[Rfam]
RNA sequence: AGCAAAGUCACUGUGUAUCCAUAACGGGCUCUGCAGUGAUUCUUCUGAAAAUACUAGGAGUGAAUAAUGGCCCGUAUAGCAGGCAUUAACAUUCCUGAU
Numbered sequence: 001a002g003c004a005a006a007g008u009c010a011c012u013g014u015g016u017a018u019c020c021a022u023a024a025c026g027g028g029c030u031c032u033g034c035a036g037u038g039a040u041u042c043u044u045c046u047g048a049a050a051a052u053a054c055u056a057g058g059a060g061u062g063a064a065u066a067a068u069g070g071c072c073c074g075u076a077u078a079g080c081a082g083g084c085a086u087u088a089a090c091a092u093u094c095c096u097g098a099u
Stems, first nucleotide, its partner, number of pairs: 004043001006041006019083002025074004034097002

Rfam assigns this 99-nucleotide RNA from Paraphotobacterium marinum to the family "Alpha operon ribosome binding site". It is annotated as a cis-regulatory element. The base pairs follow the family's consensus structure, which is taken from published work. On this family, see Schlax et al., J Biol Chem 2001: "Translational repression of the Escherichia coli alpha operon mRNA: importance of an mRNA conformational switch and a ternary entrapment complex". Its family is annotated with ribosome binding in the Gene Ontology. It scores 86 bits against the family's covariance model.